[Rfam]
RNA sequence: GCGUGGGUCGGCCCACUGCUCGGAACAGUGGGCUGGGGGACACCGCCGUCUCAUUCCCCGCGGACGGCGGUUCGGUCCGGGAGGCGAGGGCGCCUCCCGGGCUGAC
Numbered sequence: 001g002c003g004u005g006g007g008u009c010g011g012c013c014c015a016c017u018g019c020u021c022g023g024a025a026c027a028g029u030g031g032g033c034u035g036g037g038g039g040a041c042a043c044c045g046c047c048g049u050c051u052c053a054u055u056c057c058c059c060g061c062g063g064a065c066g067g068c069g070g071u072u073c074g075g076u077c078c079g080g081g082a083g084g085c086g087a088g089g090g091c092g093c094c095u096c097c098c099g100g101g102c103u104g105a106c
Base pairs, nucleotide, nucleotide: 002104006073007072009035010034011033012032013031014030015029016028017027018026036041043070044069045068046067047066048065049064050063051062074103075102076101077100078099079098080097081096082095083094084093085092086091